[Rfam]
RNA sequence: AUUGUUUCUUGGCUCCUUGGAGCUCAGAUCAAAGUGUUGUAUCUGUUCUUAUCAGUUUAAUCUCUGGUAUGUCCUUUAUGUCAGGACUGUAUAUUAACUUGAUUUUUGAAGCAGGGGGGGUUAGAACAGAAGCUUGCUUUGUCUGCCCCAUGCAUUGACCUGGUAUUGCAGUGCUUCCAGGAACGGUGUAUCUCCU
Numbered sequence: 001a002u003u004g005u006u007u008c009u010u011g012g013c014u015c016c017u018u019g020g021a022g023c024u025c026a027g028a029u030c031a032a033a034g035u036g037u038u039g040u041a042u043c044u045g046u047u048c049u050u051a052u053c054a055g056u057u058u059a060a061u062c063u064c065u066g067g068u069a070u071g072u073c074c075u076u077u078a079u080g081u082c083a084g085g086a087c088u089g090u091a092u093a094u095u096a097a098c099u100u101g102a103u104u105u106u107u108g109a110a111g112c113a114g115g116g117g118g119g120g121u122u123a124g125a126a127c128a129g130a131a132g133c134u135u136g137c138u139u140u141g142u143c144u145g146c147c148c149c150a151u152g153c154a155u156u157g158a159c160c161u162g163g164u165a166u167u168g169c170a171g172u173g174c175u176u177c178c179a180g181g182a183a184c185g186g187u188g189u190a191u192c193u194c195c196u
Base pairs, nucleotide, nucleotide: 007028008027009026011024012023013022014021050069051068052067053066054065055064071087072086073085074084075083117149118148119147120146121145124142129140130139131138132137152189153188154187155186156185157184159181160180161179162178163177
RNA: U2 spliceosomal RNA
Organism: Mauremys mutica